Shown here is a 91-nucleotide RNA sequence from bacterium HR12, a member of the family "Selenocysteine transfer RNA". Pairs were carried over by alignment from the consensus structure, which is taken from published work.

[Rfam]
RNA sequence: GGAGGCGUCCGGGCACCUGGUGGGCCCCCCGGUCUUCAAAACCGGUGUGGGGGCGAGAGCUCCCAGGCGGGUUCGAUUCCCGUCCGCCUCC
Numbered sequence: 001g002g003a004g005g006c007g008u009c010c011g012g013g014c015a016c017c018u019g020g021u022g023g024g025c026c027c028c029c030c031g032g033u034c035u036u037c038a039a040a041a042c043c044g045g046u047g048u049g050g051g052g053g054c055g056a057g058a059g060c061u062c063c064c065a066g067g068c069g070g071g072u073u074c075g076a077u078u079c080c081c082g083u084c085c086g087c088c089u090c091c
Base pairs, nucleotide, nucleotide: 001091002090003089004088005087006086007085012027013026016023017022029045030044031043032042033041048065049064050063051062052061068082069081070080071079

Rfam links the family to the GO term triplet codon-amino acid adaptor activity. The literature on the family includes a 2000 paper in FEBS Lett by Mizutani and Goto, "Eukaryotic selenocysteine tRNA has the 9/4 secondary structure".